RNA sequence: UUACAGAACGUUUUAGCCAAUGAACUGAUUUGUCCCGCUCUGUCAAAGAACAAAAUAUUGUUCCUUGACAGAGAGGGACAAAACAGUUCAAUAGCUAAAACGUUCUGUAAC
Numbered sequence: 001u002u003a004c005a006g007a008a009c010g011u012u013u014u015a016g017c018c019a020a021u022g023a024a025c026u027g028a029u030u031u032g033u034c035c036c037g038c039u040c041u042g043u044c045a046a047a048g049a050a051c052a053a054a055a056u057a058u059u060g061u062u063c064c065u066u067g068a069c070a071g072a073g074a075g076g077g078a079c080a081a082a083a084c085a086g087u088u089c090a091a092u093a094g095c096u097a098a099a100a101c102g103u104u105c106u107g108u109a110a111c
Stems, first nucleotide, its partner, number of pairs: 001110006011100007019092001021090007029072006049062004
RNA: mir-8517 microRNA precursor family
Organism: Plutella xylostella